Shown here is a 131-nucleotide RNA sequence from Pelotomaculum propionicicum, a member of the family "FMN riboswitch aptamer (RFN element)".
The family's consensus secondary structure is taken from published work.
Rfam's curators write: The RFN element is a highly conserved domain that is found frequently in the 5'-untranslated regions of prokaryotic mRNAs that encode for flavin mononucleotide (FMN) biosynthesis and transport proteins.
It scores 116 bits against the family's covariance model.
Nucleotides: 131
Stems, first nucleotide, its partner, number of pairs: 005127006017029003031111002033100002035062004057098002065076003080096005102114003
Number, partner (000 for none) and nucleotide at each position: 001000u002000u003000a004000a005127a006126c007125c008124u009123u010122c011000a012000g013000g014000g015000a016000c017029g018028g019027g020000u021000g022000u023000a024000a025000u026000u027019c028018c029017c030000u031111a032110c033100c034099g035062g036061c037060g038059g039000u040000a041000a042000a043000g044000c045000c046000u047000u048000a049000u050000a051000a052000g053000c054000u055000g056000a057098g058097c059038c060037c061036g062035c063000g064000a065076g066075c067074c068000c069000u070000a071000a072000c073000g074067g075066g076065c077000a078000g079000a080096u081095c082094c083093g084092g085000u086000u087000a088000a089000a090000g091000u092084c093083c094082g095081g096080g097058g098057c099034c100033g101000a102114c103113a104112g105000u106000u107000a108000a109000a110032g111031u112104c113103u114102g115000g116000a117000u118000g119000g120000g121000a122010g123009a124008a125007g126006g127005u128000g129000a130000g131000u